[Rfam]
RNA sequence: UUCUUAUCAAGAGAGGCAGAGGGAAUGGCCCUAUGAAGCCUCGGCAACGGAUUCCAAUGGAACACCGUGCUAAUUCCAUUAGAUGAGAA
Numbered sequence: 001u002u003c004u005u006a007u008c009a010a011g012a013g014a015g016g017c018a019g020a021g022g023g024a025a026u027g028g029c030c031c032u033a034u035g036a037a038g039c040c041u042c043g044g045c046a047a048c049g050g051a052u053u054c055c056a057a058u059g060g061a062a063c064a065c066c067g068u069g070c071u072a073a074u075u076c077c078a079u080u081a082g083a084u085g086a087g088a089a
Stems, first nucleotide, its partner, number of pairs: 001089008013042005021031003026078003043071004048067002050063001052061002075081001